[Rfam]
The record is a 75-nucleotide RNA sequence from Streptomyces sp. BR123, which matches "ASpks TB sRNA" in Rfam. It scores 77 bits against the family's covariance model. For this family Rfam cites "Identification of small RNAs in Mycobacterium tuberculosis" (Arnvig and Young, Mol Microbiol, 2009). The family's consensus secondary structure is taken from published work. Taxonomically the source falls in Streptomyces (Bacteria, Actinomycetota, Actinomycetes, Streptomycetaceae).

RNA sequence: CUUGAUGGAGCCCAGCCAGAGCGGGCUGUCCGCGGGCCGGUCCUGCCCGUACGUGGCGAGGAGGGCCUGUGCCUC
Dot-bracket structure: ...............((.....))......(((....(....((..(((....)))..))....)...)))....
Numbered sequence: 001c002u003u004g005a006u007g008g009a010g011c012c013c014a015g016c017c018a019g020a021g022c023g024g025g026c027u028g029u030c031c032g033c034g035g036g037c038c039g040g041u042c043c044u045g046c047c048c049g050u051a052c053g054u055g056g057c058g059a060g061g062a063g064g065g066c067c068u069g070u071g072c073c074u075c
Stems, first nucleotide, its partner, number of pairs: 016024002031071003038065001043060002047056003